[Rfam]
RNA sequence: GCUACUGUAGCUCAGCUGGCAGAGCAGUGCACUCGUAACGCACAGGCCAAGGGUUCGAGCCCCUUCAGUAGCU
Numbered sequence: 001g002c003u004a005c006u007g008u009a010g011c012u013c014a015g016c017u018g019g020c021a022g023a024g025c026a027g028u029g030c031a032c033u034c035g036u037a038a039c040g041c042a043c044a045g046g047c048c049a050a051g052g053g054u055u056c057g058a059g060c061c062c063c064u065u066c067a068g069u070a071g072c073u
Stems, first nucleotide, its partner, number of pairs: 001072007010025004027043004049065005
Dot-bracket structure: (((((((..((((........)))).((((.........)))).....(((((.......)))))))))))).
RNA: tRNA